[Rfam]
This 209-nucleotide RNA from Xenorhabdus innexi belongs to the Rfam family "GlmZ RNA activator of glmS mRNA". The source organism's lineage runs through Bacteria, Pseudomonadati, Pseudomonadota, Morganellaceae and Xenorhabdus. About the family: This RNA was discovered in E. coli during a large scale screen. The family's RNA type in Rfam is small RNA. A reference for the family is Argaman et al. (2001), "Novel small RNA-encoding genes in the intergenic regions of Escherichia coli", Curr Biol.
RNA sequence: GUAGAUACUCAUCCCACUCCUUAUGACAGUAUAGCUUCAUAAACCUCGGGAUGAUGUAGAGCUGAUUGUUGGUGCCUAUGGUCCAUGUUAUAGAUGAGUAAGUCUAUUGUCUUUUCAUCACGAACCGGACAUAACGUUGAGUGAGGCACUAUCCGUCUGUAGACCUGAUUGUAUUUAUGCACCUGUCUUAUCGCGGCAGGUGUUUUUUU
Numbered sequence: 001g002u003a004g005a006u007a008c009u010c011a012u013c014c015c016a017c018u019c020c021u022u023a024u025g026a027c028a029g030u031a032u033a034g035c036u037u038c039a040u041a042a043a044c045c046u047c048g049g050g051a052u053g054a055u056g057u058a059g060a061g062c063u064g065a066u067u068g069u070u071g072g073u074g075c076c077u078a079u080g081g082u083c084c085a086u087g088u089u090a091u092a093g094a095u096g097a098g099u100a101a102g103u104c105u106a107u108u109g110u111c112u113u114u115u116c117a118u119c120a121c122g123a124a125c126c127g128g129a130c131a132u133a134a135c136g137u138u139g140a141g142u143g144a145g146g147c148a149c150u151a152u153c154c155g156u157c158u159g160u161a162g163a164c165c166u167g168a169u170u171g172u173a174u175u176u177a178u179g180c181a182c183c184u185g186u187c188u189u190a191u192c193g194c195g196g197c198a199g200g201u202g203u204u205u206u207u208u209u
Stems, first nucleotide, its partner, number of pairs: 001062002006058003009054004014050002017048001027034001071150007081130004093119006155164003179203009